[Rfam]
RNA: Group II catalytic intron D1-D4-5
RNA sequence: CCUAACUGAUAUUCCGAGAAGUGGAAUGAAGGGGUAACGCCCUGAAACGCUUCCCCUGAUACUGCGUUGGAGGAAAGGGAGCGCAAUUUCCCGGACUGACACAGCACGCUGAAGUCGGCUGAACACACUCGCCUUACACGAGGUAACAGACGGUAGGGCAAAAGCGAGCCAGAGGUGGCCGCGAGUGAUAGGCCAGGGGUUCAUAAC
Numbered sequence: 001c002c003u004a005a006c007u008g009a010u011a012u013u014c015c016g017a018g019a020a021g022u023g024g025a026a027u028g029a030a031g032g033g034g035u036a037a038c039g040c041c042c043u044g045a046a047a048c049g050c051u052u053c054c055c056c057u058g059a060u061a062c063u064g065c066g067u068u069g070g071a072g073g074a075a076a077g078g079g080a081g082c083g084c085a086a087u088u089u090c091c092c093g094g095a096c097u098g099a100c101a102c103a104g105c106a107c108g109c110u111g112a113a114g115u116c117g118g119c120u121g122a123a124c125a126c127a128c129u130c131g132c133c134u135u136a137c138a139c140g141a142g143g144u145a146a147c148a149g150a151c152g153g154u155a156g157g158g159c160a161a162a163a164g165c166g167a168g169c170c171a172g173a174g175g176u177g178g179c180c181g182c183g184a185g186u187g188a189u190a191g192g193c194c195a196g197g198g199g200u201u202c203a204u205a206a207c
Stems, first nucleotide, its partner, number of pairs: 018053006031043004054199004064109004068101002072097002117194004126187005131159003138154002164182003168179004